[Rfam]
RNA sequence: UCGCGACAAAGGCAAAACUGGCGAAAGCCAGCGACGCAAAGCUACAGGGGCUUCAUUCUCCUUCCUGGGGAGGACAGCCAGCCAGCCGCCGAA
Numbered sequence: 001u002c003g004c005g006a007c008a009a010a011g012g013c014a015a016a017a018c019u020g021g022c023g024a025a026a027g028c029c030a031g032c033g034a035c036g037c038a039a040a041g042c043u044a045c046a047g048g049g050g051c052u053u054c055a056u057u058c059u060c061c062u063u064c065c066u067g068g069g070g071a072g073g074a075c076a077g078c079c080a081g082c083c084a085g086c087c088g089c090c091g092a093a
Stems, first nucleotide, its partner, number of pairs: 012037002018031005041086003047083002049079003056073002059070004